[Rfam]
RNA: SAM riboswitch aptamer (S box leader)
Organism: Priestia koreensis
RNA sequence: UUCUUAUCCAGAGAGACUGAGGGAACUGGUCCUAUGACGUCUCGGCAACGGACUCCAAUGAGCACCGUGCCACUUCCAACAAGCGUUUGCGCUUGAUAGAUGAGAA
Numbered sequence: 001u002u003c004u005u006a007u008c009c010a011g012a013g014a015g016a017c018u019g020a021g022g023g024a025a026c027u028g029g030u031c032c033u034a035u036g037a038c039g040u041c042u043c044g045g046c047a048a049c050g051g052a053c054u055c056c057a058a059u060g061a062g063c064a065c066c067g068u069g070c071c072a073c074u075u076c077c078a079a080c081a082a083g084c085g086u087u088u089g090c091g092c093u094u095g096a097u098a099g100a101u102g103a104g105a106a
Stems, first nucleotide, its partner, number of pairs: 001106008013043005021032003027078003044071004049067002053062003075098001080095006